Annotation:
Shown here is a 123-nucleotide RNA sequence from Mus musculus, a member of the family "Small nucleolar RNA SNORA17". Rfam classes the family as an H/ACA-box small nucleolar RNA. Gene Ontology terms of the family: RNA processing and nucleolus. snoRNA ACA 17 belongs to the H/ACA family of snoRNAs and is predicted to guide pseudouridylation of the 28S rRNA at positions U4659 and U4598. It shares the same host gene together with ACA43. NB This family has a high threshold value to exclude a large number of closely related sequences that do not appear to have conserved H and ACA boxes, and may be pseudogenes. The base pairs follow the family's consensus structure, which was predicted with RNAalifold. NCBI's taxonomy places the organism under Eukaryota, Metazoa, Tetrapoda, Mammalia, Mus. Its Rfam clan is "SNORA17 clan".
[Rfam]
Nucleotides: 123
Stems, first nucleotide, its partner, number of pairs: 002052001005049002007046004013040003019037002024032003059120001062117007073107003077103003082097004
Number, partner (000 for none) and nucleotide at each position: 001000u002052c003000c004000a005049u006048u007046c008045c009044u010043a011000g012000a013040g014039g015038c016000a017000u018000u019037g020036c021000u022000a023000c024032u025031g026030u027000g028000u029000c030026a031025u032024g033000u034000g035000u036020g037019u038015g039014u040013c041000a042000a043010u044009a045008g046007g047000u048006a049005g050000c051000a052002g053000a054000g055000a056000a057000g058000a059120g060000a061000g062117a063116g064115g065114c066113u067112a068111u069000g070000u071000c072000u073107u074106c075105a076000a077103u078102c079101a080000u081000c082097g083096u084095u085094c086000u087000g088000a089000c090000c091000u092000a093000u094085g095084a096083a097082c098000a099000u100000c101079u102078g103077a104000a105075u106074g107073a108000u109000u110000a111068g112067u113066a114065g115064c116063c117062u118000a119000a120059c121000a122000u123000u